Shown here is a 185-nucleotide sequence from Aneurinibacillus migulanus, a member of the family "Group II catalytic intron D1-D4-3".
RNA sequence: UCAACCGUGAAGUCGAAUCUGAAAGAAGUUGGCGGCAAACCUCCGGCCUAGAGAACAUAAAUUUUAUAUAUGGUCAGCGUUCAUUAGACGAGUCUGCCUAACAAAAUAAAGUCCAAACUGCCAAAAUGAAAACAGACCAUCCGCAUGGAUUUAUCCGAAGCAGAAGUGGUGAUAUAGCGAGUAGU
Numbered sequence: 001u002c003a004a005c006c007g008u009g010a011a012g013u014c015g016a017a018u019c020u021g022a023a024a025g026a027a028g029u030u031g032g033c034g035g036c037a038a039a040c041c042u043c044c045g046g047c048c049u050a051g052a053g054a055a056c057a058u059a060a061a062u063u064u065u066a067u068a069u070a071u072g073g074u075c076a077g078c079g080u081u082c083a084u085u086a087g088a089c090g091a092g093u094c095u096g097c098c099u100a101a102c103a104a105a106a107u108a109a110a111g112u113c114c115a116a117a118c119u120g121c122c123a124a125a126a127u128g129a130a131a132a133c134a135g136a137c138c139a140u141c142c143g144c145a146u147g148g149a150u151u152u153a154u155c156c157g158a159a160g161c162a163g164a165a166g167u168g169g170u171g172a173u174a175u176a177g178c179g180a181g182u183a184g185u
Stems, first nucleotide, its partner, number of pairs: 001016002004013002028185004035178002041171001043169003048163002062160004066154002073150003077146001079144002083140002087113003092107002095104001

Group II introns are found in rRNA, tRNA and mRNA of organelles in fungi, plants and protists, and also in mRNA in bacteria. Taxonomically the source falls in Aneurinibacillus (Bacteria, Bacillota, Caryophanales, Paenibacillaceae). The pairing is the family consensus, mapped onto this sequence.